[Rfam]
RNA sequence: CUGCUUGCAGGAACGUGGCAGGCCACCGAGGUCACACUCGUGCUUCGCGUGGUUCAACAACAUGGUCCCAGA
Dot-bracket structure: .........(((.((((....(((((.(((((.........)))))..))))).......)))).)))....
Numbered sequence: 001c002u003g004c005u006u007g008c009a010g011g012a013a014c015g016u017g018g019c020a021g022g023c024c025a026c027c028g029a030g031g032u033c034a035c036a037c038u039c040g041u042g043c044u045u046c047g048c049g050u051g052g053u054u055c056a057a058c059a060a061c062a063u064g065g066u067c068c069c070a071g072a
Stems, first nucleotide, its partner, number of pairs: 010068003014064004022053005028046005
Shown here is a 72-nucleotide RNA sequence from Trypanosoma brucei, a member of the family "Trypanosomatid snoRNA TB10cs1H3".
It is one of the family's seed sequences.
On this family, see Liang et al., RNA 2005: "A genome-wide analysis of C/D and H/ACA-like small nucleolar RNAs in Trypanosoma brucei reveals a trypanosome-specific pattern of rRNA modification".
Pairs were carried over by alignment from the consensus structure, which was predicted with WAR.
By type it is an H/ACA-box small nucleolar RNA.